RNA: permuted transfer-messenger RNA
RNA sequence: GGCGAUAAAUGGCCAUCGCAAUAAACCCAUCGGACCCGGGGGCAGUACCCGGCGCCUCCACCACUCUCCCCGUUCCUGGACGGGCGCGCGGGGGCGAAACAGGAUCGACGAGGGCGUAAAGGGUGUGUUUUCGCUCGGCAUGGUACCGCCGAUAUCGGACCAUUUUUAUAGUUGCCAAUGACAACUAUGCUGAGGCCCGUCUGGCUGCGUAA
Numbered sequence: 001g002g003c004g005a006u007a008a009a010u011g012g013c014c015a016u017c018g019c020a021a022u023a024a025a026c027c028c029a030u031c032g033g034a035c036c037c038g039g040g041g042g043c044a045g046u047a048c049c050c051g052g053c054g055c056c057u058c059c060a061c062c063a064c065u066c067u068c069c070c071c072g073u074u075c076c077u078g079g080a081c082g083g084g085c086g087c088g089c090g091g092g093g094g095c096g097a098a099a100c101a102g103g104a105u106c107g108a109c110g111a112g113g114g115c116g117u118a119a120a121g122g123g124u125g126u127g128u129u130u131u132c133g134c135u136c137g138g139c140a141u142g143g144u145a146c147c148g149c150c151g152a153u154a155u156c157g158g159a160c161c162a163u164u165u166u167u168a169u170a171g172u173u174g175c176c177a178a179u180g181a182c183a184a185c186u187a188u189g190c191u192g193a194g195g196c197c198c199g200u201c202u203g204g205c206u207g208c209g210u211a212a
Stems, first nucleotide, its partner, number of pairs: 001135005014125004026114003030111003036052005053096007136151004
Dot-bracket structure: (((((........((((........(((.(((...(((((.......)))))(((((((..............................)))))))............)))))).......)))).....)))))((((........)))).............................................................